[Rfam]
RNA: Archaeal large subunit ribosomal RNA, nucleotides 1415 to 1813
Organism: Sulfolobus acidocaldarius
RNA sequence: GGUAGUAACAGCGAAGGGGGGUGAGAAUCCCCCUCGCCGGAAGGGCAAGGGUUUCCCGGCAACGUUCGUCAGCCGGGAGUUAGCCGGUCCUAAGGUAGGGCCUAAUAGGUACCUACCGAAAGGGAAAGGGGUUAACAUUCCCCUGCCUCCCGGGUAGGUGCGGUAACGCAAGCCAGACUCCUGACGGAUUGGGGUAGGGAGAGUAGGACCACCGUCCUACCCAAGCACUCAAGCCCUUGGAGAGCCGUAACGGUGAGAAGAGGGCGAAGGUGUGAUGGGCCUUCCGUUAGGAGGGUUCUCCUGAUCCCUAGUCCCCAUGAAAAGGGAGUCUGGAACGAUCCCGGGAGACCGUACCUAGAACCGACACUGGUGCCCCUGGGUGAGAAGCCCAAGGCGUCU
Numbered sequence: 001g002g003u004a005g006u007a008a009c010a011g012c013g014a015a016g017g018g019g020g021g022u023g024a025g026a027a028u029c030c031c032c033c034u035c036g037c038c039g040g041a042a043g044g045g046c047a048a049g050g051g052u053u054u055c056c057c058g059g060c061a062a063c064g065u066u067c068g069u070c071a072g073c074c075g076g077g078a079g080u081u082a083g084c085c086g087g088u089c090c091u092a093a094g095g096u097a098g099g100g101c102c103u104a105a106u107a108g109g110u111a112c113c114u115a116c117c118g119a120a121a122g123g124g125a126a127a128g129g130g131g132u133u134a135a136c137a138u139u140c141c142c143c144u145g146c147c148u149c150c151c152g153g154g155u156a157g158g159u160g161c162g163g164u165a166a167c168g169c170a171a172g173c174c175a176g177a178c179u180c181c182u183g184a185c186g187g188a189u190u191g192g193g194g195u196a197g198g199g200a201g202a203g204u205a206g207g208a209c210c211a212c213c214g215u216c217c218u219a220c221c222c223a224a225g226c227a228c229u230c231a232a233g234c235c236c237u238u239g240g241a242g243a244g245c246c247g248u249a250a251c252g253g254u255g256a257g258a259a260g261a262g263g264g265c266g267a268a269g270g271u272g273u274g275a276u277g278g279g280c281c282u283u284c285c286g287u288u289a290g291g292a293g294g295g296u297u298c299u300c301c302u303g304a305u306c307c308c309u310a311g312u313c314c315c316c317a318u319g320a321a322a323a324g325g326g327a328g329u330c331u332g333g334a335a336c337g338a339u340c341c342c343g344g345g346a347g348a349c350c351g352u353a354c355c356u357a358g359a360a361c362c363g364a365c366a367c368u369g370g371u372g373c374c375c376c377u378g379g380g381u382g383a384g385a386a387g388c389c390c391a392a393g394g395c396g397u398c399u
Stems, first nucleotide, its partner, number of pairs: 016034006035396004043375004049355002054078006064070001085351003089123002094117006100110003127144005147347008180326003186314009197302005203220005225273004234264005244254003285290001361370002377391004